RNA: Pyrrolysine insertion sequence mttB
RNA sequence: UAGGCUGACGCCAAGAUAUCCGACGCCCAGGCGGGACACGAGAAGACGAUCAGCGCGUUGCUCUCGGCCCUGGCAGGCGCCAAUCUCAUAUACGGAGCGG
Numbered sequence: 001u002a003g004g005c006u007g008a009c010g011c012c013a014a015g016a017u018a019u020c021c022g023a024c025g026c027c028c029a030g031g032c033g034g035g036a037c038a039c040g041a042g043a044a045g046a047c048g049a050u051c052a053g054c055g056c057g058u059u060g061c062u063c064u065c066g067g068c069c070c071u072g073g074c075a076g077g078c079g080c081c082a083a084u085c086u087c088a089u090a091u092a093c094g095g096a097g098c099g100g
Stems, first nucleotide, its partner, number of pairs: 003012001025032001033062002077098001080095001